About this RNA
Shown here is a 104-nucleotide RNA sequence from Paramylibacter kogurei, a member of the family "TPP riboswitch aptamer (THI element)". A search with the family's covariance model found it, with a score of 63 bits. The source organism's lineage runs through Bacteria, Pseudomonadati, Pseudomonadota, Rhodobacterales and Paramylibacter. Gene Ontology term of the family: thiamine pyrophosphate binding.

RNA sequence: AGGAAACCGUUGGGGAGCCUGUGCACAGGCUGAGACUUGCAAUCGCAUAAACCCAUCGUACCUGAUCCGAGAUAAACGGCGUAGGGAACGGUAAACAUAUGUAA
Numbered sequence: 001a002g003g004a005a006a007c008c009g010u011u012g013g014g015g016a017g018c019c020u021g022u023g024c025a026c027a028g029g030c031u032g033a034g035a036c037u038u039g040c041a042a043u044c045g046c047a048u049a050a051a052c053c054c055a056u057c058g059u060a061c062c063u064g065a066u067c068c069g070a071g072a073u074a075a076a077c078g079g080c081g082u083a084g085g086g087a088a089c090g091g092u093a094a095a096c097a098u099a100u101g102u103a104a
Stems, first nucleotide, its partner, number of pairs: 006092005011055004017030005038047003061085004067079003